[Rfam]
RNA sequence: GCGCACGAUUAUUAACCCCGGGCUGGCCUUAGUAAUGUUGAGGUGUAGCCCUGCAAUCGUGCAACAACUAUCGUGUCUCGUGUUGCAGGCAUUCUUUGGUUUGUGGAAUGCCUGUGUCAAAGUAGACGCUACAUUU
Numbered sequence: 001g002c003g004c005a006c007g008a009u010u011a012u013u014a015a016c017c018c019c020g021g022g023c024u025g026g027c028c029u030u031a032g033u034a035a036u037g038u039u040g041a042g043g044u045g046u047a048g049c050c051c052u053g054c055a056a057u058c059g060u061g062c063a064a065c066a067a068c069u070a071u072c073g074u075g076u077c078u079c080g081u082g083u084u085g086c087a088g089g090c091a092u093u094c095u096u097u098g099g100u101u102u103g104u105g106g107a108a109u110g111c112c113u114g115u116g117u118c119a120a121a122g123u124a125g126a127c128g129c130u131a132c133a134u135u136u
Base pairs, nucleotide, nucleotide: 003062004061005060006059007058008057010056020051021050022049023048024047026044027043028042073129074128075127076126077125078124081119082118084116085115086114087113088112089111092107093106094105
The family of this 136-nucleotide RNA sequence from Ceratopteris richardii is "small nucleolar RNA snoR134". For this family Rfam cites "Mining small RNA sequencing data: a new approach to identify small nucleolar RNAs in Arabidopsis" (Chen and Wu, Nucleic Acids Res, 2009). By type it is an H/ACA-box small nucleolar RNA. The base pairs follow the family's consensus structure, which was predicted with RNAalifold. The family has 5 seed sequences and 792 matches in Rfam 15.1.